[Rfam]
RNA sequence: AAUUAAUAACAUAAAGCGCUUUCAAAACUAACGGCAGCUUUGCAAAAAAAUUCUCACAGGAAAGAGGUUAGAGGGUAUGGGUACAAUCAUUUGUCAAACUUGUAACAGCGCGGUAGACCAUUUUGAGGAUGAAAAAGUUACGACUUAUUAUGCAAAAUGUCCAGAUUGCCAGUGCUCUGAAAAAAGCGAAGAUUUAGCCUAGAAAUAUAUAGAAUGAGAAAAGGGACCUCCAAAUGGGGUCCCUUUUCUCAUU
Numbered sequence: 001a002a003u004u005a006a007u008a009a010c011a012u013a014a015a016g017c018g019c020u021u022u023c024a025a026a027a028c029u030a031a032c033g034g035c036a037g038c039u040u041u042g043c044a045a046a047a048a049a050a051u052u053c054u055c056a057c058a059g060g061a062a063a064g065a066g067g068u069u070a071g072a073g074g075g076u077a078u079g080g081g082u083a084c085a086a087u088c089a090u091u092u093g094u095c096a097a098a099c100u101u102g103u104a105a106c107a108g109c110g111c112g113g114u115a116g117a118c119c120a121u122u123u124u125g126a127g128g129a130u131g132a133a134a135a136a137g138u139u140a141c142g143a144c145u146u147a148u149u150a151u152g153c154a155a156a157a158u159g160u161c162c163a164g165a166u167u168g169c170c171a172g173u174g175c176u177c178u179g180a181a182a183a184a185a186g187c188g189a190a191g192a193u194u195u196a197g198c199c200u201a202g203a204a205a206u207a208u209a210u211a212g213a214a215u216g217a218g219a220a221a222a223g224g225g226a227c228c229u230c231c232a233a234a235u236g237g238g239g240u241c242c243c244u245u246u247u248c249u250c251a252u253u
Stems, first nucleotide, its partner, number of pairs: 016138002020135003025130001028127002031124001033122002037119001039117001078113001080111001090105002161197001163195005215251013
Shown here is a 253-nucleotide RNA sequence from Bacillus sp. THAF10, a member of the family "SR1 sRNA".
A search with the family's covariance model found it, with a score of 60 bits.
The source organism's lineage runs through Bacteria, Bacillati, Bacilli, Bacillaceae and Bacillus.
Rfam classes the family as a small RNA.